[Rfam]
RNA sequence: UUGGUUUAAAUCAUUGUGGGUCUACACUUUGAAAAUUGAACCCACACAAAGUAGUGUGACAUAUAUUAGUUUAAUCUAA
Numbered sequence: 001u002u003g004g005u006u007u008a009a010a011u012c013a014u015u016g017u018g019g020g021u022c023u024a025c026a027c028u029u030u031g032a033a034a035a036u037u038g039a040a041c042c043c044a045c046a047c048a049a050a051g052u053a054g055u056g057u058g059a060c061a062u063a064u065a066u067u068a069g070u071u072u073a074a075u076c077u078a079a
Stems, first nucleotide, its partner, number of pairs: 001079004006074006013067001015065004023056002026052006
The record is a 79-nucleotide sequence from Medicago truncatula, which matches "MIR5269 microRNA precursor family" in Rfam. The family has 2 seed sequences and 389 matches in Rfam 15.1. The base pairs follow the family's consensus structure, which was predicted with RNAalifold.